A member of the RNA family "mir-965 microRNA precursor family" from Eumeta japonica, 71 nucleotides long.
RNA sequence: CACUCAAGGGGAAAAGCUAUACGCUUAUGAUAAAUUUUAAACAUAUAGCAUAUGACUUUUCCCCUCAAGAU
Dot-bracket structure: ..((..(.(((.((...((((..((((((............)))).))..))))...)).))).)..))..
Record summary:
The base pairs follow the family's consensus structure, which was predicted with RNAalifold. Rfam links the family to the GO terms RISC complex and miRNA-mediated post-transcriptional gene silencing.